Overview
Shown here is a 108-nucleotide RNA sequence from Sulfurirhabdus autotrophica, a member of the family "Glycine riboswitch aptamer". It scores 56 bits against the family's covariance model. About the family: This family represents the bacterial glycine riboswitch.

RNA sequence: UGAGACUACUCUGGAGAGCGAUGAUCUUUUUUGAUAAGAUCAUCCACCGAAGGGGCACGCGACAUUUUUUGUCGUAAUCUCUCAGGUUAAAAGGACAGGGGGGUGAAG
Numbered sequence: 001u002g003a004g005a006c007u008a009c010u011c012u013g014g015a016g017a018g019c020g021a022u023g024a025u026c027u028u029u030u031u032u033g034a035u036a037a038g039a040u041c042a043u044c045c046a047c048c049g050a051a052g053g054g055g056c057a058c059g060c061g062a063c064a065u066u067u068u069u070u071g072u073c074g075u076a077a078u079c080u081c082u083c084a085g086g087u088u089a090a091a092a093g094g095a096c097a098g099g100g101g102g103g104u105g106a107a108g
Base pairs, nucleotide, nucleotide: 006103007102009100010099011098012097013096020044021043022042023041024040025039026038027037028036046087047086048085049083050082053081054080055079
Dot-bracket structure: .....((.(((((......(((((((((.......))))))))).(((((..(((.......................))))).)))........))))).)).....